[Rfam]
RNA sequence: GAGGAAAAGAAGAAGCACCCGCUUCUCACCUGGUUGACGCAAGCAAUGCAGUUAACAGGUCAUGAUUUGAUUAUUUGGAUCUUUCUGAAUGAGUCUAUCAGUGUGGGUGCAGCAUGCAUCCACACUUUUUUAUUAUG
Numbered sequence: 001g002a003g004g005a006a007a008a009g010a011a012g013a014a015g016c017a018c019c020c021g022c023u024u025c026u027c028a029c030c031u032g033g034u035u036g037a038c039g040c041a042a043g044c045a046a047u048g049c050a051g052u053u054a055a056c057a058g059g060u061c062a063u064g065a066u067u068u069g070a071u072u073a074u075u076u077g078g079a080u081c082u083u084u085c086u087g088a089a090u091g092a093g094u095c096u097a098u099c100a101g102u103g104u105g106g107g108u109g110c111a112g113c114a115u116g117c118a119u120c121c122a123c124a125c126u127u128u129u130u131u132a133u134u135a136u137g
Base pairs, nucleotide, nucleotide: 011026012025013024014023015022016021028060029059030058036053037052038051039049040048102124103123104122105121106120107119108118109117110116111115
Dot-bracket structure: ..........((((((....)))))).(((.....(((((.......)).)))....))).........................................((((((((((...)))))))))).............

The family of this 137-nucleotide RNA from Peribacillus muralis is "Ribosomal protein L20 leader". It is annotated as a cis-regulatory leader. Rfam's curators write: This family is a putative r-protein leader autoregulatory structure found in B. subtilis and other low-GC Gram-positive bacteria. It is located in the 5' untranslated regions of mRNAs encoding initiation factor 3 followed by ribosomal proteins L35 and L20 (infC-rpmI-rplT). A Rho-independent transcription terminator structure that is probably involved in regulation is included at the 3' end. The family's consensus secondary structure was predicted with CMfinder. Taxonomically the source falls in Peribacillus (Bacteria, Bacilli, Caryophanales, Bacillaceae). For this family Rfam cites "Diverse mechanisms for regulating ribosomal protein synthesis in Escherichia coli" (Zengel and Lindahl, Prog Nucleic Acid Res Mol Biol, 1994).